[Rfam]
RNA sequence: GUUGCAAAUUUGAAGCCAUAGCAUAAGCAAUCAUGGCACAGCUUGUCAGAUUCCAGUGAAUCUGUGAAUUCUGCU
Numbered sequence: 001g002u003u004g005c006a007a008a009u010u011u012g013a014a015g016c017c018a019u020a021g022c023a024u025a026a027g028c029a030a031u032c033a034u035g036g037c038a039c040a041g042c043u044u045g046u047c048a049g050a051u052u053c054c055a056g057u058g059a060a061u062c063u064g065u066g067a068a069u070u071c072u073g074c075u
Stems, first nucleotide, its partner, number of pairs: 014043003020075004025070002027039001047064007
Shown here is a 75-nucleotide RNA from Crocodylus porosus, a member of the family "Mammalian CPEB3 ribozyme". Lineage of the source: Eukaryota > Amniota > Sauria > Archosauria > Crocodylus. A search with the family's covariance model found it, with a score of 48 bits.